[Rfam]
RNA sequence: CUGCAUCAACCCUGUAGAUCCGAAUUUGUGUAAGUGGUAAAUUCUCUCACAAGUUUGGAUCUCGCGGUACCUGCAGA
Numbered sequence: 001c002u003g004c005a006u007c008a009a010c011c012c013u014g015u016a017g018a019u020c021c022g023a024a025u026u027u028g029u030g031u032a033a034g035u036g037g038u039a040a041a042u043u044c045u046c047u048c049a050c051a052a053g054u055u056u057g058g059a060u061c062u063c064g065c066g067g068u069a070c071c072u073g074c075a076g077a
Stems, first nucleotide, its partner, number of pairs: 002075004010067002016062015

The record is a 77-nucleotide RNA sequence from Acanthaster planci, which matches "mir-10 microRNA precursor family" in Rfam.
On this family, see Lee and Ambros, Science 2001: "An extensive class of small RNAs in Caenorhabditis elegans".